[Rfam]
RNA sequence: UGCUAGCUGAUGCGCGCAUUUGUGCGUGUCUCUGGCUUAUGUUACUCAUUGGCCAAGCUGAGGCCGCACUAG
Number, nucleotide and partner (000 for none) at each position: 001u000002g000003c000004u000005a000006g023007c022008u000009g020010a019011u018012g017013c000014g000015c000016g000017c012018a011019u010020u009021u000022g007023u006024g067025c066026g000027u000028g064029u063030c062031u061032c000033u000034g058035g000036c000037u055038u000039a000040u000041g000042u000043u000044a000045c000046u000047c000048a000049u000050u000051g000052g000053c000054c000055a037056a000057g000058c034059u000060g000061a031062g030063g029064c028065c000066g025067c024068a000069c000070u000071a000072g000
Rfam assigns this 72-nucleotide RNA sequence from Orthohepacivirus hominis to the family "Hepatitis C virus stem-loop SL2531 and SL2549AU". The family's RNA type in Rfam is cis-regulatory element. The base pairs follow the family's consensus structure, which was predicted with RNAfold.